Background:
The record is a 79-nucleotide RNA, which matches "nadA riboswitch" in Rfam.
RNA sequence: GCCUGCAACAUCCCCGCGGAUCGGGAUUCUAUGAGAAUAUUUCUGAAAACUCAAUAGAAUCAGUGGAUUCGCUGCUGGC
Numbered sequence: 001g002c003c004u005g006c007a008a009c010a011u012c013c014c015c016g017c018g019g020a021u022c023g024g025g026a027u028u029c030u031a032u033g034a035g036a037a038u039a040u041u042u043c044u045g046a047a048a049a050c051u052c053a054a055u056a057g058a059a060u061c062a063g064u065g066g067a068u069u070c071g072c073u074g075c076u077g078g079c
Base pairs, nucleotide, nucleotide: 001079002078003077005075006074007073013065014063016072017071018070019069020068021067022066023064025061026060027059028058029057030056031055032054

For this family Rfam cites "Structural distinctions between NAD+ riboswitch domains 1 and 2 determine differential folding and ligand binding" (Chen et al., Nucleic Acids Res, 2020).